[Rfam]
Annotation:
A member of the RNA family "mir-160 microRNA precursor family" from Hibiscus syriacus, 86 nucleotides long. A reference for the family is Rhoades et al. (2002), "Prediction of plant microRNA targets", Cell. Rfam links the family to the GO terms miRNA-mediated post-transcriptional gene silencing and RISC complex. A search with the family's covariance model found it, with a score of 68 bits.
RNA sequence: GCAUGCCUGGCGCCCUGUAUGCCAUUUAUAAAGCCCAUCGAGAAUCCGGUGGCCUUCGUGAAUGGCAUGCAAGGAGCCAUGCAUGC
Numbered sequence: 001g002c003a004u005g006c007c008u009g010g011c012g013c014c015c016u017g018u019a020u021g022c023c024a025u026u027u028a029u030a031a032a033g034c035c036c037a038u039c040g041a042g043a044a045u046c047c048g049g050u051g052g053c054c055u056u057c058g059u060g061a062a063u064g065g066c067a068u069g070c071a072a073g074g075a076g077c078c079a080u081g082c083a084u085g086c
Stems, first nucleotide, its partner, number of pairs: 001086006008079004013074002016071009027060003